[Rfam]
RNA sequence: GGGUCAUUUCAAAGAGAGCUUACAGGACAAAAACCAGGAGCUCUUAACGCUGUGACCAAAGAUUGAAGUUCUCCGUAGGAUGUAAUAGUCACUUGAUAGUGCUAUGUUUUCCUGAGGAGAUAUAAGA
Numbered sequence: 001g002g003g004u005c006a007u008u009u010c011a012a013a014g015a016g017a018g019c020u021u022a023c024a025g026g027a028c029a030a031a032a033a034c035c036a037g038g039a040g041c042u043c044u045u046a047a048c049g050c051u052g053u054g055a056c057c058a059a060a061g062a063u064u065g066a067a068g069u070u071c072u073c074c075g076u077a078g079g080a081u082g083u084a085a086u087a088g089u090c091a092c093u094u095g096a097u098a099g100u101g102c103u104a105u106g107u108u109u110u111c112c113u114g115a116g117g118a119g120a121u122a123u124a125a126g127a
Stems, first nucleotide, its partner, number of pairs: 002057006014045008023037001026035001070120005077113004085105004090101004
The record is a 127-nucleotide RNA from Rousettus aegyptiacus, which matches "Small nucleolar RNA SNORA25" in Rfam. Pairs were carried over by alignment from the consensus structure, which was predicted with RNAfold. A search with the family's covariance model found it, with a score of 137 bits. It is annotated as an H/ACA-box small nucleolar RNA. ACA25 is a member of the H/ACA class of snoRNA that guide the sites of modification of uridines to pseudouridines.